[Rfam]
RNA sequence: UUUGCCUUCCAAUGGCUAGAUAUGGAAAUUUGAGAUCACAUUUGGUUCAGACAAGGGCAUAUAGUAAAGAUACGAGGUGGAUUGCAUUGGAAUCUAUUUCUUCACUUUUCCAUUUCCUCUUGAAUCAAUCUUACUGGAGAGGAAUGAUUU
Numbered sequence: 001u002u003u004g005c006c007u008u009c010c011a012a013u014g015g016c017u018a019g020a021u022a023u024g025g026a027a028a029u030u031u032g033a034g035a036u037c038a039c040a041u042u043u044g045g046u047u048c049a050g051a052c053a054a055g056g057g058c059a060u061a062u063a064g065u066a067a068a069g070a071u072a073c074g075a076g077g078u079g080g081a082u083u084g085c086a087u088u089g090g091a092a093u094c095u096a097u098u099u100c101u102u103c104a105c106u107u108u109u110c111c112a113u114u115u116c117c118u119c120u121u122g123a124a125u126c127a128a129u130c131u132u133a134c135u136g137g138a139g140a141g142g143a144a145u146g147a148u149u150u
Stems, first nucleotide, its partner, number of pairs: 003059006014047008023038003068108003074102002077100001080098003084094001115143007
Dot-bracket structure: ..((((((.....((((((((.(((..........))).))))))))......))))))........(((...((.(..(((.(.........).))).)))...)))......(((((((...............))))))).......
RNA: Small nucleolar RNA snoR138